[Rfam]
A member of the RNA family "Bacterial RNase P class B" from Listeria booriae, 385 nucleotides long. The organism belongs to Listeria, within Bacteria. A reference for the family is Frank and Pace (1998), "Ribonuclease P: unity and diversity in a tRNA processing ribozyme", Annu Rev Biochem.
RNA sequence: GUGCUUGGGUAAUUGCUGUUUUCCCUAUGAAAACAGAGGAAAGUCCAUGCUCGCACGGUGCUGAAAUGCCCGUAGUGAUCGUGCCUAGCCAAACAAUAAGCUAGGGCACUCCGGUUUAUCCGGUUUGACGGCAGGUGACGCGCCUAAGUCUUAGGAUACGGCGUUCGAACCUUGAAAGUGCCACAGUGACGAAGUUCCAUCAGAAAUGGUGGAAGUGGAACGAGGUAAACCCCACGAGCGAGAAACCCAAAUAUUGGUAGGGGCACUUUUCCCGAGGAAUAACAACGAGGGACGAGGUAUGUAGUUUAACCGCUAUAUGCAGAUAGAUGAUUGCCACUUUUGUGUGAUCCUGUAAUCACAGAAGUACAGAACAUGGCUUACAGAG
Number, nucleotide and partner (000 for none) at each position: 001g000002u000003g000004c385005u384006u383007g381008g335009g334010u333011a332012a331013u330014u329015g000016c036017u035018g034019u033020u032021u031022u000023c000024c000025c000026u000027a000028u000029g000030a000031a021032a020033a019034c018035a017036g016037a000038g000039g000040a000041a379042a378043g377044u000045c376046c375047a374048u373049g372050c242051u241052c240053g239054c238055a073056c072057g071058g070059u000060g069061c068062u000063g000064a000065a000066a000067u000068g061069c060070c058071c057072g056073u055074a000075g000076u000077g000078a000079u237080c236081g235082u234083g233084c105085c104086u103087a102088g101089c100090c000091a000092a000093a000094c000095a000096a000097u000098a000099a000100g089101c088102u087103a086104g085105g084106g129107c127108a126109c000110u000111c123112c122113g121114g120115u000116u000117u000118a000119u000120c114121c113122g112123g111124u000125u000126u108127g107128a000129c106130g232131g231132c000133a172134g171135g170136u169137g000138a000139c000140g000141c163142g162143c161144c160145u000146a000147a000148g157149u156150c155151u000152u000153a000154g000155g150156a149157u148158a000159c000160g144161g143162c142163g141164u000165u000166c000167g000168a000169a136170c135171c134172u133173u000174g000175a000176a000177a000178g230179u229180g226181c225182c224183a000184c000185a000186g000187u000188g000189a000190c000191g000192a000193a000194g000195u214196u213197c212198c211199a210200u209201c208202a207203g000204a000205a000206a000207u202208g201209g200210u199211g198212g197213a196214a195215g000216u000217g000218g000219a000220a000221c000222g000223a000224g182225g181226u180227a000228a000229a179230c178231c131232c130233c083234a082235c081236g080237a079238g054239c053240g052241a051242g050243a000244a000245a000246c262247c261248c260249a000250a000251a000252u000253a000254u000255u000256g000257g000258u000259a000260g248261g247262g246263g000264c000265a000266c296267u295268u294269u000270u292271c291272c290273c000274g000275a000276g000277g000278a000279a000280u000281a000282a000283c000284a000285a000286c000287g000288a000289g000290g272291g271292a270293c000294g268295a267296g266297g320298u319299a318300u317301g316302u315303a314304g313305u312306u000307u000308a000309a000310c000311c000312g305313c304314u303315a302316u301317a300318u299319g298320c297321a000322g000323a000324u000325a000326g000327a000328u000329g014330a013331u012332u011333g010334c009335c008336a000337c364338u363339u362340u361341u360342g359343u358344g357345u000346g000347a000348u000349c000350c000351u000352g000353u000354a000355a000356u000357c344358a343359c342360a341361g340362a339363a338364g337365u000366a000367c000368a000369g000370a000371a000372c049373a048374u047375g046376g045377c043378u042379u041380a000381c007382a000383g006384a005385g004